[Rfam]
RNA: epsC RNA
Organism: Paenibacillus protaetiae
RNA sequence: AGGUAAUGCCUACUAAACCUUUAUCAUUGGAGGCACUCGGUCACGCUGUGGGUUAAACAAACCUUAGACAUAAUUGUCGAAGGCGUGACGAGAGGCGGGGUUAAAUGCCCC
Number, nucleotide and partner (000 for none) at each position: 001a020002g019003g018004u017005a000006a000007u035008g034009c033010c032011u031012a000013c029014u000015a000016a000017a004018c003019c002020u001021u000022u000023a000024u000025c000026a000027u000028u000029g013030g000031a011032g010033g009034c008035a007036c094037u093038c092039g000040g089041u088042c087043a086044c085045g084046c083047u082048g000049u000050g064051g063052g062053u061054u060055a000056a000057a000058c000059a000060a054061a053062c052063c051064u050065u000066a000067g078068a077069c076070a075071u000072a000073a000074u000075u070076g069077u068078c067079g000080a000081a000082g047083g046084c045085g044086u043087g042088a041089c040090g000091a000092g038093a037094g036095g000096c000097g111098g110099g109100g108101u107102u000103a000104a000105a000106u000107g101108c100109c099110c098111c097